This 74-nucleotide sequence from Atlantibacter hermannii belongs to the Rfam family "MicA sRNA".
RNA sequence: GAAAGACGCGCAUUUGUUAUCAUCAUCCCUGUCUUCAGAGAUGAAAUUUUUGGCCACACACUGUGUGGCCUUUU
Numbered sequence: 001g002a003a004a005g006a007c008g009c010g011c012a013u014u015u016g017u018u019a020u021c022a023u024c025a026u027c028c029c030u031g032u033c034u035u036c037a038g039a040g041a042u043g044a045a046a047u048u049u050u051u052g053g054c055c056a057c058a059c060a061c062u063g064u065g066u067g068g069c070c071u072u073u074u
Base pairs, nucleotide, nucleotide: 024043025042026041027040029038030037031036052070053069054068055067056066057065058064
Dot-bracket structure: .......................((((.(((....))).))))........(((((((.....)))))))....

The family's RNA type in Rfam is small RNA.